[Rfam]
RNA sequence: CAAUGAAUGAAACAUGAUAAUGUGUACAGAAAUUAAAUUGGGUCUCUUGAUUUGCUUUCUUUGAUGUCAUUUGGCUUGGAUUUGGGGGUAUGAUUCCACAGCAAAAUA
Number, nucleotide and partner (000 for none) at each position: 001c000002a000003a000004u000005g000006a000007a000008u000009g000010a000011a000012a025013c024014a023015u022016g000017a000018u000019a000020a000021u000022g015023u014024g013025u012026a000027c000028a000029g000030a000031a000032a000033u000034u000035a000036a000037a000038u000039u000040g091041g000042g089043u088044c087045u000046c000047u000048u000049g000050a081051u080052u079053u000054g075055c074056u073057u000058u000059c000060u000061u000062u000063g000064a000065u000066g000067u000068c000069a000070u000071u000072u000073g056074g055075c054076u000077u000078g000079g052080a051081u050082u000083u000084g000085g000086g000087g044088g043089u042090a000091u040092g000093a000094u000095u000096c000097c000098a000099c000100a000101g000102c000103a000104a000105a000106a000107u000108a000
A member of the RNA family "Small nucleolar RNA snoR100" from Rhododendron simsii, 108 nucleotides long. The family's consensus secondary structure was predicted with WAR. The family's RNA type in Rfam is H/ACA-box small nucleolar RNA. Rfam links the family to the GO terms RNA processing and nucleolus.